[Rfam]
RNA sequence: UGAAGCAGAGGGCGGAACAGGCGGCCGCCACCCACCAAUUAUCUGGUGUAGGAGAUGUGGAUUGUCACCCACCUACUUCA
Numbered sequence: 001u002g003a004a005g006c007a008g009a010g011g012g013c014g015g016a017a018c019a020g021g022c023g024g025c026c027g028c029c030a031c032c033c034a035c036c037a038a039u040u041a042u043c044u045g046g047u048g049u050a051g052g053a054g055a056u057g058u059g060g061a062u063u064g065u066c067a068c069c070c071a072c073c074u075a076c077u078u079c080a
Base pairs, nucleotide, nucleotide: 001080002079003078004077005076007074008073011029012028013027014026015025020066021065022064023063031052033048034047035046036045057072058071059070060069
About this RNA:
skipping-rope RNA: an 80-nucleotide RNA. It is one of the family's seed sequences.